[Rfam]
RNA sequence: UGGCUGUAGCAAAAUUAAUUGAGUUCAUUAGAAGCUAUCUGGCCGAUUGUUGUUAAUUACAUCAACUAAUUUGCUUACCGAGCUUCUAACAUUU
Numbered sequence: 001u002g003g004c005u006g007u008a009g010c011a012a013a014a015u016u017a018a019u020u021g022a023g024u025u026c027a028u029u030a031g032a033a034g035c036u037a038u039c040u041g042g043c044c045g046a047u048u049g050u051u052g053u054u055a056a057u058u059a060c061a062u063c064a065a066c067u068a069a070u071u072u073g074c075u076u077a078c079c080g081a082g083c084u085u086c087u088a089a090c091a092u093u094u
Stems, first nucleotide, its partner, number of pairs: 029088008041075003045071004049066004